[Rfam]
RNA: Bacterial large subunit ribosomal RNA, nucleotides 9 to 515
Organism: Pelagibacterales bacterium SAG-MED04
RNA sequence: GUUUAAGGGCGUGUAGUGGAUGCCUUGGCACUGAAAGCCGAUGAAGGACGUGAUAUACUGCGAUAAGUUUCGGGGAGCUGUAUGUAAGUUUUGAUCCGAAAAUUUCCGAAUGGGGAAACCCACCACUUUAUGUGGUACUUUAAACUGAAUACAUAGGUUUAAAGAGACAACCUGGAGAACUGAAACAUCUAAGUAACCAGAGGAAAAGAAAUCAAUUGAGAUUCUGUUAGUAGUGGCGAGCGAACGCGGAAUAGGCCAGUAGUUUUGUUAAAAAAAUUUGAAUAGUUUGGAAAUGCUAACCAUAGAGGGUGAUAGUCCCGUAUGAGUAAUGUUUAACAAAAUUCUUGAGUAAAGCGGGACACGUGAAAUCCUGCUCGAAUAUAGGGGGACCACCCUCUAAGCCUAAAUACUCUUCAGUGACCGAUAGUGAACUAGUACCGUGAGGGAAAGGUGAAAAGAACCCCUAUUAGGGGAGUGAAAUAGAACCUGAAACUGCAUGCCUACAAU
Numbered sequence: 001g002u003u004u005a006a007g008g009g010c011g012u013g014u015a016g017u018g019g020a021u022g023c024c025u026u027g028g029c030a031c032u033g034a035a036a037g038c039c040g041a042u043g044a045a046g047g048a049c050g051u052g053a054u055a056u057a058c059u060g061c062g063a064u065a066a067g068u069u070u071c072g073g074g075g076a077g078c079u080g081u082a083u084g085u086a087a088g089u090u091u092u093g094a095u096c097c098g099a100a101a102a103u104u105u106c107c108g109a110a111u112g113g114g115g116a117a118a119c120c121c122a123c124c125a126c127u128u129u130a131u132g133u134g135g136u137a138c139u140u141u142a143a144a145c146u147g148a149a150u151a152c153a154u155a156g157g158u159u160u161a162a163a164g165a166g167a168c169a170a171c172c173u174g175g176a177g178a179a180c181u182g183a184a185a186c187a188u189c190u191a192a193g194u195a196a197c198c199a200g201a202g203g204a205a206a207a208g209a210a211a212u213c214a215a216u217u218g219a220g221a222u223u224c225u226g227u228u229a230g231u232a233g234u235g236g237c238g239a240g241c242g243a244a245c246g247c248g249g250a251a252u253a254g255g256c257c258a259g260u261a262g263u264u265u266u267g268u269u270a271a272a273a274a275a276a277u278u279u280g281a282a283u284a285g286u287u288u289g290g291a292a293a294u295g296c297u298a299a300c301c302a303u304a305g306a307g308g309g310u311g312a313u314a315g316u317c318c319c320g321u322a323u324g325a326g327u328a329a330u331g332u333u334u335a336a337c338a339a340a341a342u343u344c345u346u347g348a349g350u351a352a353a354g355c356g357g358g359a360c361a362c363g364u365g366a367a368a369u370c371c372u373g374c375u376c377g378a379a380u381a382u383a384g385g386g387g388g389a390c391c392a393c394c395c396u397c398u399a400a401g402c403c404u405a406a407a408u409a410c411u412c413u414u415c416a417g418u419g420a421c422c423g424a425u426a427g428u429g430a431a432c433u434a435g436u437a438c439c440g441u442g443a444g445g446g447a448a449a450g451g452u453g454a455a456a457a458g459a460a461c462c463c464c465u466a467u468u469a470g471g472g473g474a475g476u477g478a479a480a481u482a483g484a485a486c487c488u489g490a491a492a493c494u495g496c497a498u499g500c501c502u503a504c505a506a507u
Stems, first nucleotide, its partner, number of pairs: 007502010022487001023451002027422002029419007036411002039166001046107003049062003068101007077089003112121003122136005138164009171202001172200004182189002212219002222407001223250005233241002253404004261345002263341010274330001277325002283298004301305001307319003353375007383398005438445002461473004